[Rfam]
RNA sequence: GCAACGAUGGCAUCCAUGUAGUCUUGUUACCACAUGGCUCUGCCAGUAUGGCAUAUGGGAGCAGAGCCCUCUUGGCUGUGAAGUAUAUUCCCUUUCCAUGACGUUGAAGAACAACUCUGCCCCCAGUUGCACUGGUGAGGGCAGUACACGGCAUAUUCUUGACCAUCUCAGAGUUCCUAUGGGACUAUUACUGAGGAGGAAGACCAUGCUAGGUACAUUG
Numbered sequence: 001g002c003a004a005c006g007a008u009g010g011c012a013u014c015c016a017u018g019u020a021g022u023c024u025u026g027u028u029a030c031c032a033c034a035u036g037g038c039u040c041u042g043c044c045a046g047u048a049u050g051g052c053a054u055a056u057g058g059g060a061g062c063a064g065a066g067c068c069c070u071c072u073u074g075g076c077u078g079u080g081a082a083g084u085a086u087a088u089u090c091c092c093u094u095u096c097c098a099u100g101a102c103g104u105u106g107a108a109g110a111a112c113a114a115c116u117c118u119g120c121c122c123c124c125a126g127u128u129g130c131a132c133u134g135g136u137g138a139g140g141g142c143a144g145u146a147c148a149c150g151g152c153a154u155a156u157u158c159u160u161g162a163c164c165a166u167c168u169c170a171g172a173g174u175u176c177c178u179a180u181g182g183g184a185c186u187a188u189u190a191c192u193g194a195g196g197a198g199g200a201a202g203a204c205c206a207u208g209c210u211a212g213g214u215a216c217a218u219u220g
Stems, first nucleotide, its partner, number of pairs: 002106005008045005014037003018030004048099004057092004061086001063084001066079002150210005164198001166196004173185002176182002

This 220-nucleotide RNA from Holothuria leucospilota belongs to the Rfam family "Small nucleolar RNA SNORA73 family". Gene Ontology terms of the family: RNA processing and nucleolus. The family is grouped with related families in Rfam's "snR30-U17 clan". Rfam describes the family as follows. U17 (SNORA73A and SNORA73B) also known as E1 belongs to the H/ACA class of small nucleolar RNAs (snoRNAs). Vertebrate U17 is intron-encoded and ranges in length from 200-230 nucleotides, longer than most snoRNAs. It is one of the most abundant snoRNAs in human cells and is essential for the cleavage of pre-rRNA within the 5' external transcribed spacer (ETS). On this family, see Enright et al., RNA 1996: "5'ETS rRNA processing facilitated by four small RNAs: U14, E3, U17, and U3". The family's consensus secondary structure is taken from published work. The family's RNA type in Rfam is H/ACA-box small nucleolar RNA. The match comes from Rfam's covariance-model search (132 bits).